[Rfam]
RNA sequence: ACCUCCUCGCGUUCACUGCGCCGCCAUAUGUGUUCUUAUCCAUCAUAAGGCACGCGGUGAAUGCCAAGAGCG
Numbered sequence: 001a002c003c004u005c006c007u008c009g010c011g012u013u014c015a016c017u018g019c020g021c022c023g024c025c026a027u028a029u030g031u032g033u034u035c036u037u038a039u040c041c042a043u044c045a046u047a048a049g050g051c052a053c054g055c056g057g058u059g060a061a062u063g064c065c066a067a068g069a070g071c072g
Stems, first nucleotide, its partner, number of pairs: 003070003009064008018055003024050002027047004